[Rfam]
RNA: Bacterial large subunit ribosomal RNA, nucleotides 1648 to 2009
RNA sequence: UGAGAGAACUCGGGUUAAGGAACUCUGCAAAUUGAUACCGUAACUUCGGAAGAAGGUAUGCCUUCGAUGGUGAAAGGACUUGCUCCUCUAGCUAUUGAAGGUCGCAGGUAAUCGGUGGCUGCAACUGUUUAUCAAAAACACAGGACUCUGCGAACACGCAAGUGGAUGUAUAGGGUCUGACGCCUGCCCGGUGCCGGAAGGUUAAUUGAUGGGGUCAGCCGCAAGGCGAAGCUCUUGAUCGAAGCCCCGGUAAACGGCGGCCGUAACUAUAACGGUCCUAAGGUAGCGAAAUUCCUUGUCGGGUAAGUUCCGACCUGCACGAAUGGCGUAAUGAUAGCCACACUGUCUCGACCCGAGACUCA
Numbered sequence: 001u002g003a004g005a006g007a008a009c010u011c012g013g014g015u016u017a018a019g020g021a022a023c024u025c026u027g028c029a030a031a032u033u034g035a036u037a038c039c040g041u042a043a044c045u046u047c048g049g050a051a052g053a054a055g056g057u058a059u060g061c062c063u064u065c066g067a068u069g070g071u072g073a074a075a076g077g078a079c080u081u082g083c084u085c086c087u088c089u090a091g092c093u094a095u096u097g098a099a100g101g102u103c104g105c106a107g108g109u110a111a112u113c114g115g116u117g118g119c120u121g122c123a124a125c126u127g128u129u130u131a132u133c134a135a136a137a138a139c140a141c142a143g144g145a146c147u148c149u150g151c152g153a154a155c156a157c158g159c160a161a162g163u164g165g166a167u168g169u170a171u172a173g174g175g176u177c178u179g180a181c182g183c184c185u186g187c188c189c190g191g192u193g194c195c196g197g198a199a200g201g202u203u204a205a206u207u208g209a210u211g212g213g214g215u216c217a218g219c220c221g222c223a224a225g226g227c228g229a230a231g232c233u234c235u236u237g238a239u240c241g242a243a244g245c246c247c248c249g250g251u252a253a254a255c256g257g258c259g260g261c262c263g264u265a266a267c268u269a270u271a272a273c274g275g276u277c278c279u280a281a282g283g284u285a286g287c288g289a290a291a292u293u294c295c296u297u298g299u300c301g302g303g304u305a306a307g308u309u310c311c312g313a314c315c316u317g318c319a320c321g322a323a324u325g326g327c328g329u330a331a332u333g334a335u336a337g338c339c340a341c342a343c344u345g346u347c348u349c350g351a352c353c354c355g356a357g358a359c360u361c362a
Stems, first nucleotide, its partner, number of pairs: 001362004009357008018348003035059005044049001060102012103107001115341007122333002126140003143178008151168001155164003181328004186258003191255002193251005200246003211235005218227002259277006278282001288315001298314006